[Rfam]
RNA sequence: GGCUCGCGCAAAGAGGAACGCUCAGCCUCUCCCCGGGGAGAGGCUGAGCGUUCCUCUUUGCGCGAGCC
Numbered sequence: 001g002g003c004u005c006g007c008g009c010a011a012a013g014a015g016g017a018a019c020g021c022u023c024a025g026c027c028u029c030u031c032c033c034c035g036g037g038g039a040g041a042g043g044c045u046g047a048g049c050g051u052u053c054c055u056c057u058u059u060g061c062g063c064g065a066g067c068c
Base pairs, nucleotide, nucleotide: 001068002067003066004065005064006063007062008061009060012057013056014055015054016053017052018051019050020049021048022047023046024045025044026043029042030041031040033038

Source information: The family of this 68-nucleotide sequence from Dictyobacter aurantiacus is "Epstein-Barr virus stable intronic sequence RNA 2". The family has 2 seed sequences and 171 matches in Rfam 15.1. The pairing is the family consensus, mapped onto this sequence. The match comes from Rfam's covariance-model search (48 bits).